[Rfam]
RNA: Fluoride riboswitch aptamer (crcB RNA motif)
RNA sequence: UGAAGUUUCGGCGAUGGACCCCGCCGGGGACGCGAUGCGUCCCGAACCGUCAUAUUUUGACUGAUGGCUCCUGCACCGCU
Numbered sequence: 001u002g003a004a005g006u007u008u009c010g011g012c013g014a015u016g017g018a019c020c021c022c023g024c025c026g027g028g029g030a031c032g033c034g035a036u037g038c039g040u041c042c043c044g045a046a047c048c049g050u051c052a053u054a055u056u057u058u059g060a061c062u063g064a065u066g067g068c069u070c071c072u073g074c075a076c077c078g079c080u
Stems, first nucleotide, its partner, number of pairs: 010025004016071003020067002049061004